[Rfam]
RNA sequence: GAAGGAGCAACACCAAACCUCUUGAUAUAACAAGAAUUUUAGUAUUGCUCCUUUGCUU
Numbered sequence: 001g002a003a004g005g006a007g008c009a010a011c012a013c014c015a016a017a018c019c020u021c022u023u024g025a026u027a028u029a030a031c032a033a034g035a036a037u038u039u040u041a042g043u044a045u046u047g048c049u050c051c052u053u054u055g056c057u058u
Base pairs, nucleotide, nucleotide: 001054002053003052004051005050006049007048008047009046010045012043013042020035021034022033023032024031
RNA: Plastid-psbA-3 3UTR RNA
Organism: Rosa chinensis